[Rfam]
RNA: Guanidine-II riboswitch aptamer (mini-ykkC)
RNA sequence: GCCGGGGGACGACCCCACGGCCGGGACGAUCGCCCGCGAGGACGGCCUCG
Numbered sequence: 001g002c003c004g005g006g007g008g009a010c011g012a013c014c015c016c017a018c019g020g021c022c023g024g025g026a027c028g029a030u031c032g033c034c035c036g037c038g039a040g041g042a043c044g045g046c047c048u049c050g
Stems, first nucleotide, its partner, number of pairs: 001021004005016004037050005